Rfam assigns this 76-nucleotide RNA from Phtheirospermum japonicum to the family "Small nucleolar RNA Z155". NCBI's taxonomy places the organism under Eukaryota, Euphyllophyta, Mesangiospermae, asterids, Phtheirospermum. The family's RNA type in Rfam is C/D-box small nucleolar RNA. It scores 53 bits against the family's covariance model.
RNA sequence: CAUUGGGGUGAUGAUUGCCUAUACGGAUAUGCAAAUGACGAUUGCAAAUAUUCAGACUACAAUUAUCUGACCAAUG
Numbered sequence: 001c002a003u004u005g006g007g008g009u010g011a012u013g014a015u016u017g018c019c020u021a022u023a024c025g026g027a028u029a030u031g032c033a034a035a036u037g038a039c040g041a042u043u044g045c046a047a048a049u050a051u052u053c054a055g056a057c058u059a060c061a062a063u064u065a066u067c068u069g070a071c072c073a074a075u076g
Stems, first nucleotide, its partner, number of pairs: 001076006